The family of this 89-nucleotide sequence from Rhodospirillaceae bacterium LM-1 is "Glycine riboswitch aptamer".
[Rfam]
RNA sequence: CGACUUCCCCCGGGAGAGACUGGCUGACCCCAGCGCCGAAGGAGCAACCGCCCCUGGAAACUCUCAGGCAAAAGGACCGGGAGAAGAGG
Numbered sequence: 001c002g003a004c005u006u007c008c009c010c011c012g013g014g015a016g017a018g019a020c021u022g023g024c025u026g027a028c029c030c031c032a033g034c035g036c037c038g039a040a041g042g043a044g045c046a047a048c049c050g051c052c053c054c055u056g057g058a059a060a061c062u063c064u065c066a067g068g069c070a071a072a073a074g075g076a077c078c079g080g081g082a083g084a085a086g087a088g089g
Stems, first nucleotide, its partner, number of pairs: 006084002009081005020033004035069003038065002042063003048056001

The organism belongs to Rhodospirillaceae, within Bacteria.